RNA sequence: UAAAUUAAAAAAGCGCUGGUGCUUGGAGGUUUUCCAAGCAGACGAGGAAGAGGUUUAUCGAGCAGUCAGCGGAUGCCUCUCGGCCCCUGUCAGUCGUUAGCCGGCCGACAAACCCGCAGGGUGAUCUGCGGAACAAAACGGCGGCAUGCAGGACA
Numbered sequence: 001u002a003a004a005u006u007a008a009a010a011a012a013g014c015g016c017u018g019g020u021g022c023u024u025g026g027a028g029g030u031u032u033u034c035c036a037a038g039c040a041g042a043c044g045a046g047g048a049a050g051a052g053g054u055u056u057a058u059c060g061a062g063c064a065g066u067c068a069g070c071g072g073a074u075g076c077c078u079c080u081c082g083g084c085c086c087c088u089g090u091c092a093g094u095c096g097u098u099a100g101c102c103g104g105c106c107g108a109c110a111a112a113c114c115c116g117c118a119g120g121g122u123g124a125u126c127u128g129c130g131g132a133a134c135a136a137a138a139c140g141g142c143g144g145c146a147u148g149c150a151g152g153a154c155a
Stems, first nucleotide, its partner, number of pairs: 020040008049080005058069001060067002081096004100145004105141002114131007